[Rfam]
RNA sequence: AAUUAGGUUUGUUGGAACAAAGAGAAACAAAUCUAUUCUAUAACCGAUAAGUAGAAAUACGCAAUGAGG
Numbered sequence: 001a002a003u004u005a006g007g008u009u010u011g012u013u014g015g016a017a018c019a020a021a022g023a024g025a026a027a028c029a030a031a032u033c034u035a036u037u038c039u040a041u042a043a044c045c046g047a048u049a050a051g052u053a054g055a056a057a058u059a060c061g062c063a064a065u066g067a068g069g
Base pairs, nucleotide, nucleotide: 003022004021007018008017009016010015045066051060052059053058
RNA: Plastid-clpP 5UTR RNA